[Rfam]
RNA: Small nucleolar RNA SNORA65
RNA sequence: CCCGCCACUAUACCUGUCUAUCAAGAGUGACUUGAAUAUAGUCCAGUGGAGGCUAAGAUAGACCCAGCUUUAGGAAACAGGGCUGCCCAAACUAAUGGACAACUCUGUGCCGAAAGGUUUGGUACACAC
Numbered sequence: 001c002c003c004g005c006c007a008c009u010a011u012a013c014c015u016g017u018c019u020a021u022c023a024a025g026a027g028u029g030a031c032u033u034g035a036a037u038a039u040a041g042u043c044c045a046g047u048g049g050a051g052g053c054u055a056a057g058a059u060a061g062a063c064c065c066a067g068c069u070u071u072a073g074g075a076a077a078c079a080g081g082g083c084u085g086c087c088c089a090a091a092c093u094a095a096u097g098g099a100c101a102a103c104u105c106u107g108u109g110c111c112g113a114a115a116g117g118u119u120u121g122g123u124a125c126a127c128a129c
Stems, first nucleotide, its partner, number of pairs: 005049005017035002020032001022029002064122004068117004073111002078107005087098002